[Rfam]
RNA sequence: GCCGCCGUCGUGGGGGAGUAGUCUGUCCGCAAGCCAUGCGGACGUGCACGUCAACAUAAUCGGCCAGCAGGCCGUGGCGUGUGCAACCGGGUUCCCAGCCCGGUCUGACGAGACCUGUGACACGGUUGCGGCUGCCUGGGGGCGGGUCUGCGCCCGUGUCAUUGGUAUUCGUAUCCCGCCC
Numbered sequence: 001g002c003c004g005c006c007g008u009c010g011u012g013g014g015g016g017a018g019u020a021g022u023c024u025g026u027c028c029g030c031a032a033g034c035c036a037u038g039c040g041g042a043c044g045u046g047c048a049c050g051u052c053a054a055c056a057u058a059a060u061c062g063g064c065c066a067g068c069a070g071g072c073c074g075u076g077g078c079g080u081g082u083g084c085a086a087c088c089g090g091g092u093u094c095c096c097a098g099c100c101c102g103g104u105c106u107g108a109c110g111a112g113a114c115c116u117g118u119g120a121c122a123c124g125g126u127u128g129c130g131g132c133u134g135c136c137u138g139g140g141g142g143c144g145g146g147u148c149u150g151c152g153c154c155c156g157u158g159u160c161a162u163u164g165g166u167a168u169u170c171g172u173a174u175c176c177c178g179c180c181c
Stems, first nucleotide, its partner, number of pairs: 026042003044084010061074005089181003
Rfam assigns this 181-nucleotide RNA sequence from Halopseudomonas yangmingensis to the family "Manganese Mn2+ riboswitch aptamer (yybP-ykoY)". Rfam 15.1 lists 1,126 matches to the family in 1,062 species. Taxonomically the source falls in Halopseudomonas (Bacteria, Pseudomonadota, Pseudomonadales, Pseudomonadaceae). Rfam describes the family as follows. This RNA was originally discovered in E. coli during a large scale screen and was named SraF. The family was later found to exist upstream of related families of protein genes in many bacteria, including the the yybP and ykoK genes in B. subtilis.